[Rfam]
RNA sequence: GGGUUGUUAGCUCAGUUGGCAGAGCAGUAGACUCUUAAUCUAUUGGUCGUGGGUUCGAACCCCACACAACCCA
Numbered sequence: 001g002g003g004u005u006g007u008u009a010g011c012u013c014a015g016u017u018g019g020c021a022g023a024g025c026a027g028u029a030g031a032c033u034c035u036u037a038a039u040c041u042a043u044u045g046g047u048c049g050u051g052g053g054u055u056c057g058a059a060c061c062c063c064a065c066a067c068a069a070c071c072c073a
Stems, first nucleotide, its partner, number of pairs: 001072007010025004027043005049065005
Dot-bracket structure: (((((((..((((........)))).(((((.......))))).....(((((.......)))))))))))).